[Rfam]
RNA sequence: UGAGCCGACCGGGCGGCCGCGAUCCCCGAACUUCUCUCGUCGUGGGAGGAAGCGGAGGUCGAGGAAAGUCCGGACUCCACAGAGCACGGUGGUUGCUAACGGCAACCCGGGGUGACCCGCGGGCUAGUGCCACAGAAAGGAAACCGCUGGUCUCCUGCAGGCCAGUAAGGGUGAAAGGGUGCGGUAAGAGCGCACCGGCAGGUCGGGUGACCGGCUUGGCCAGGUAAACCCCACCGGGAGCAAGGCAUGAAGUUGCACUGUGAGGUGCGGCGGAACGGAUGUUUGAGGGCUGCUCGCCUGAGUCCGGAGGUAGCUGCUUGAGGCGCCAGUGGGCGUCCUAGAUGGAUGGUCGCCACCCCGCCCGAGGGCGGGGGACAGAAUCCGGCUUAUAGGUCGGCUCAUUCG
Numbered sequence: 001u002g003a004g005c006c007g008a009c010c011g012g013g014c015g016g017c018c019g020c021g022a023u024c025c026c027c028g029a030a031c032u033u034c035u036c037u038c039g040u041c042g043u044g045g046g047a048g049g050a051a052g053c054g055g056a057g058g059u060c061g062a063g064g065a066a067a068g069u070c071c072g073g074a075c076u077c078c079a080c081a082g083a084g085c086a087c088g089g090u091g092g093u094u095g096c097u098a099a100c101g102g103c104a105a106c107c108c109g110g111g112g113u114g115a116c117c118c119g120c121g122g123g124c125u126a127g128u129g130c131c132a133c134a135g136a137a138a139g140g141a142a143a144c145c146g147c148u149g150g151u152c153u154c155c156u157g158c159a160g161g162c163c164a165g166u167a168a169g170g171g172u173g174a175a176a177g178g179g180u181g182c183g184g185u186a187a188g189a190g191c192g193c194a195c196c197g198g199c200a201g202g203u204c205g206g207g208u209g210a211c212c213g214g215c216u217u218g219g220c221c222a223g224g225u226a227a228a229c230c231c232c233a234c235c236g237g238g239a240g241c242a243a244g245g246c247a248u249g250a251a252g253u254u255g256c257a258c259u260g261u262g263a264g265g266u267g268c269g270g271c272g273g274a275a276c277g278g279a280u281g282u283u284u285g286a287g288g289g290c291u292g293c294u295c296g297c298c299u300g301a302g303u304c305c306g307g308a309g310g311u312a313g314c315u316g317c318u319u320g321a322g323g324c325g326c327c328a329g330u331g332g333g334c335g336u337c338c339u340a341g342a343u344g345g346a347u348g349g350u351c352g353c354c355a356c357c358c359c360g361c362c363c364g365a366g367g368g369c370g371g372g373g374g375a376c377a378g379a380a381u382c383c384g385g386c387u388u389a390u391a392g393g394u395c396g397g398c399u400c401a402u403u404c405g
Stems, first nucleotide, its partner, number of pairs: 001401010011390001012354007020061005026055003066388003070385005075240004082295004087236005092106005107121001108119004122231002127229002129225003144170002146166008178196006198220001199218008244315003253307003257303002287299004322337006

Shown here is a 405-nucleotide RNA from Corynebacterium uropygiale, a member of the family "Bacterial RNase P class A". By type it is a ribozyme. Its family is annotated with dimeric ribonuclease P complex, tRNA processing and ribonuclease P activity in the Gene Ontology. The organism belongs to Corynebacterium, within Bacteria.